mir-551 microRNA precursor family: a 73-nucleotide sequence from Marmota monax. The base pairs follow the family's consensus structure, which was predicted with RNAalifold. Rfam 15.1 lists 1,097 matches to the family in 627 species.
[Rfam]
RNA sequence: UGGCCGGUGAAAUCAAGCGUGGGUGAGACCUGUUGCAAGCGGGAAGGCGACCCAUACUUGGUUUCAGAGGCUG
Numbered sequence: 001u002g003g004c005c006g007g008u009g010a011a012a013u014c015a016a017g018c019g020u021g022g023g024u025g026a027g028a029c030c031u032g033u034u035g036c037a038a039g040c041g042g043g044a045a046g047g048c049g050a051c052c053c054a055u056a057c058u059u060g061g062u063u064u065c066a067g068a069g070g071c072u073g
Stems, first nucleotide, its partner, number of pairs: 002072004009065006016058002021053004029047003

A search with the family's covariance model found it, with a score of 77 bits. The literature on the family includes a 2008 paper in Genome Res by Murchison et al., "Conservation of small RNA pathways in platypus".